RNA: mir-140 microRNA precursor family
Organism: Ophiophagus hannah
RNA sequence: GGUGUCCCGCCAGUGGUUUUACCCUAUGGUAGGUGACCUGGUGCUGUUCUACCACAGGGUAGAACCACGGACGGGAUGC
Numbered sequence: 001g002g003u004g005u006c007c008c009g010c011c012a013g014u015g016g017u018u019u020u021a022c023c024c025u026a027u028g029g030u031a032g033g034u035g036a037c038c039u040g041g042u043g044c045u046g047u048u049c050u051a052c053c054a055c056a057g058g059g060u061a062g063a064a065c066c067a068c069g070g071a072c073g074g075g076a077u078g079c
Stems, first nucleotide, its partner, number of pairs: 010070002013068013027054007036047002